[Rfam]
RNA sequence: UCGACCCAUCCUUUACUCGGAUCGUCCGGCACGUUCCUGCCGGUGAAGGGGGCCCUCA
Numbered sequence: 001u002c003g004a005c006c007c008a009u010c011c012u013u014u015a016c017u018c019g020g021a022u023c024g025u026c027c028g029g030c031a032c033g034u035u036c037c038u039g040c041c042g043g044u045g046a047a048g049g050g051g052g053c054c055c056u057c058a
Base pairs, nucleotide, nucleotide: 009050010049011048012047013046014045015044026043027042028041029040030039031038
The record is a 58-nucleotide sequence from Streptomyces silvensis, which matches "msiK RNA" in Rfam.
Lineage of the source: Bacteria > Actinomycetota > Actinomycetes > Streptomycetaceae > Streptomyces.
The family's consensus secondary structure is taken from published work.